[Rfam]
RNA sequence: GCGCCUCACCCGGGGGGUCCCGUCAAGGGGCUGAGAUACGGCUGGCCGAGAGGCAGCGCCGUGACCCGAUGAACCUGAUCCAGUUCAUGCUGGCGUAGGGACGGUGCGGCUGCCUGAAG
Numbered sequence: 001g002c003g004c005c006u007c008a009c010c011c012g013g014g015g016g017g018u019c020c021c022g023u024c025a026a027g028g029g030g031c032u033g034a035g036a037u038a039c040g041g042c043u044g045g046c047c048g049a050g051a052g053g054c055a056g057c058g059c060c061g062u063g064a065c066c067c068g069a070u071g072a073a074c075c076u077g078a079u080c081c082a083g084u085u086c087a088u089g090c091u092g093g094c095g096u097a098g099g100g101a102c103g104g105u106g107c108g109g110c111u112g113c114c115u116g117a118a119g
Stems, first nucleotide, its partner, number of pairs: 007106004011068004017031005038062005074099004080093004
RNA: TPP riboswitch aptamer (THI element)
Organism: Muricoccus roseus